The family of this 125-nucleotide sequence from Fonticella tunisiensis is "c-di-AMP riboswitch aptamer (ydaO/yuaA leader)".
[Rfam]
RNA sequence: AAUGAUAAAACGCUGAAUCCAUUUUAUGGAGCGGGGGAUAAGUAUUUGGGGUGAAUCGUUAAGAGGGCUAAUUCUCUAUGGCCUAACCCGUCAACUAACCUCGUAAGCAGAAUAGGGGAGGAAUA
Numbered sequence: 001a002a003u004g005a006u007a008a009a010a011c012g013c014u015g016a017a018u019c020c021a022u023u024u025u026a027u028g029g030a031g032c033g034g035g036g037g038a039u040a041a042g043u044a045u046u047u048g049g050g051g052u053g054a055a056u057c058g059u060u061a062a063g064a065g066g067g068c069u070a071a072u073u074c075u076c077u078a079u080g081g082c083c084u085a086a087c088c089c090g091u092c093a094a095c096u097a098a099c100c101u102c103g104u105a106a107g108c109a110g111a112a113u114a115g116g117g118g119a120g121g122a123a124u125a
Stems, first nucleotide, its partner, number of pairs: 012108003018030003031104006039048002049089003057063001066083004
The organism belongs to Fonticella, within Bacteria.